A member of the RNA family "Alphaproteobacterial ar14" from Aurantimonas marianensis, 124 nucleotides long. Its family is annotated with biological process involved in symbiotic interaction in the Gene Ontology. The pairing is the family consensus, mapped onto this sequence. The organism belongs to Aurantimonas, within Bacteria.

RNA sequence: CGGUUUCGCGACGGCCCAUCCUCCUCCCAGGGCCUAGCGGAUAAAGGUCCGCCCAUCUUCCUCCCAGAAUGGGGCGGAUCUUUCAAAGACGCCCGCCGGGUCCUCCCCCCGGCGGGCGCCAUAA
Numbered sequence: 001c002g003g004u005u006u007c008g009c010g011a012c013g014g015c016c017c018a019u020c021c022u023c024c025u026c027c028c029a030g031g032g033c034c035u036a037g038c039g040g041a042u043a044a045a046g047g048u049c050c051g052c053c054c055a056u057c058u059u060c061c062u063c064c065c066a067g068a069a070u071g072g073g074g075c076g077g078a079u080c081u082u083u084c085a086a087a088g089a090c091g092c093c094c095g096c097c098g099g100g101u102c103c104u105c106c107c108c109c110c111g112g113c114g115g116g117c118g119c120c121a122u123a124a
Base pairs, nucleotide, nucleotide: 007039008038009037011035013034014033015032016031017030044082045081046080047079048078049077050076051075052074053073090118091117092116093115094114095113096112097111098110099109